[Rfam]
RNA sequence: UGCCCUGGCAAUGGGCAAAGGGAUGCCUUGUUGGUGGUGGUGUUCUUAUAUCAAUCAUGGGUAGAGCAGAUGUCAGUACUUUGUUUAUCCUAGAUUGAUGGCUGUCUUGGUGGCCAAACUGACUUAUGCGUGGGACUCAUAA
Numbered sequence: 001u002g003c004c005c006u007g008g009c010a011a012u013g014g015g016c017a018a019a020g021g022g023a024u025g026c027c028u029u030g031u032u033g034g035u036g037g038u039g040g041u042g043u044u045c046u047u048a049u050a051u052c053a054a055u056c057a058u059g060g061g062u063a064g065a066g067c068a069g070a071u072g073u074c075a076g077u078a079c080u081u082u083g084u085u086u087a088u089c090c091u092a093g094a095u096u097g098a099u100g101g102c103u104g105u106c107u108u109g110g111u112g113g114c115c116a117a118a119c120u121g122a123c124u125u126a127u128g129c130g131u132g133g134g135a136c137u138c139a140u141a142a
Stems, first nucleotide, its partner, number of pairs: 001063005008056001012053003018047003022041001024039004083136004099128001103126002107122003111118001
A member of the RNA family "Small nucleolar RNA SNORA48" from Mus musculus, 142 nucleotides long. For this family Rfam cites "Mapping to nucleotide resolution of pseudouridine residues in large subunit ribosomal RNAs from representative eukaryotes, prokaryotes, archaebacteria, mitochondria and chloroplasts" (Ofengand and Bakin, J Mol Biol, 1997). The family's consensus secondary structure was predicted with RNAalifold. The source organism's lineage runs through Eukaryota, Bilateria, Deuterostomia, Sarcopterygii and Mus. The snoRNA ACA 48 has been identified to guide pseudouridylation of the residue U3797 in the 28S rRNA subunit.